[Rfam]
Background
This 211-nucleotide sequence from Rhodopseudomonas faecalis belongs to the Rfam family "permuted transfer-messenger RNA". Pairs were carried over by alignment from the consensus structure, which is taken from published work.
RNA sequence: GACAAUAAACGGCCGUCGCAAUAAACCAUUCGGACCCGGGGGCGGUACCCGGCGCCUCCACCCAAGCCCGGCUCUGCCGGGUUUCGGCGGGGGCGAAAUAGGAUCGACGAGGGCGUAAAGGGCGAGCUUUUGUUCGGUAUGGUUCCGCCGUCAUCGGGCCAAUGCAAUAGUUGCCAACGACAACUAUGCUCCGGUUGCUCAGGCUGCGUAA
Numbered sequence: 001g002a003c004a005a006u007a008a009a010c011g012g013c014c015g016u017c018g019c020a021a022u023a024a025a026c027c028a029u030u031c032g033g034a035c036c037c038g039g040g041g042g043c044g045g046u047a048c049c050c051g052g053c054g055c056c057u058c059c060a061c062c063c064a065a066g067c068c069c070g071g072c073u074c075u076g077c078c079g080g081g082u083u084u085c086g087g088c089g090g091g092g093g094c095g096a097a098a099u100a101g102g103a104u105c106g107a108c109g110a111g112g113g114c115g116u117a118a119a120g121g122g123c124g125a126g127c128u129u130u131u132g133u134u135c136g137g138u139a140u141g142g143u144u145c146c147g148c149c150g151u152c153a154u155c156g157g158g159c160c161a162a163u164g165c166a167a168u169a170g171u172u173g174c175c176a177a178c179g180a181c182a183a184c185u186a187u188g189c190u191c192c193g194g195u196u197g198c199u200c201a202g203g204c205u206g207c208g209u210a211a
Stems, first nucleotide, its partner, number of pairs: 001134005014124004026113002030110003036052005053095007135150004